[Rfam]
RNA: Actinobacteria sRNA Ms_IGR-5
Organism: Mycolicibacterium thermoresistibile
RNA sequence: ACACAGGGAAGGAGGUGGUCCGGAAAUUGAUUGAUCCAUGGACUUGUGAGGUGACUGCGCGCUAGCAGCUGCGCAUGCGAGGAAUCACCUGCGCGCGCCGGCGAAUUCCCCGCAGUCACCCGGCCCCCGAGCCCCUUGGUCCGUCCAACCAGGGAACCAACGGCUCGGGGGCCGCUCCAU
Number, nucleotide and partner (000 for none) at each position: 001a000002c000003a000004c000005a000006g000007g000008g000009a000010a000011g000012g000013a000014g000015g058016u057017g056018g055019u054020c000021c000022g000023g000024a000025a000026a000027u000028u000029g000030a000031u000032u000033g000034a000035u000036c000037c000038a000039u000040g000041g000042a000043c000044u000045u000046g000047u000048g000049a000050g000051g000052u000053g000054a019055c018056u017057g016058c015059g000060c103061g102062c101063u100064a000065g098066c097067a000068g096069c095070u000071g000072c000073g000074c091075a090076u000077g000078c000079g000080a000081g000082g000083a000084a000085u000086c000087a000088c000089c000090u075091g074092c000093g000094c000095g069096c068097g066098c065099c000100g063101g062102c061103g060104a000105a000106u000107u000108c000109c000110c000111c000112g000113c000114a000115g000116u000117c000118a000119c000120c000121c174122g173123g172124c171125c170126c169127c168128c167129g166130a165131g164132c163133c162134c000135c153136u152137u151138g150139g149140u148141c000142c000143g000144u000145c000146c000147a000148a140149c139150c138151a137152g136153g135154g000155a000156a000157c000158c000159a000160a000161c000162g133163g132164c131165u130166c129167g128168g127169g126170g125171g124172c123173c122174g121175c000176u000177c000178c000179a000180u000